[Rfam]
RNA sequence: UUGAAGUCCAUUAACAUCUACUUGAAGAUAGCUUUCAGAAGAUAUGCGUGAAAGUCUGCCGGAUACUUUGGUAUUAGUGUAUACGAGUCGUUAAAGGAUCAAUACCAAACUUCUUAAUAGAACAAGAAGUUUGGUAUUGAUCCAUU
Numbered sequence: 001u002u003g004a005a006g007u008c009c010a011u012u013a014a015c016a017u018c019u020a021c022u023u024g025a026a027g028a029u030a031g032c033u034u035u036c037a038g039a040a041g042a043u044a045u046g047c048g049u050g051a052a053a054g055u056c057u058g059c060c061g062g063a064u065a066c067u068u069u070g071g072u073a074u075u076a077g078u079g080u081a082u083a084c085g086a087g088u089c090g091u092u093a094a095a096g097g098a099u100c101a102a103u104a105c106c107a108a109a110c111u112u113c114u115u116a117a118u119a120g121a122a123c124a125a126g127a128a129g130u131u132u133g134g135u136a137u138u139g140a141u142c143c144a145u146u
Stems, first nucleotide, its partner, number of pairs: 008062002093146002096143010107132003111128005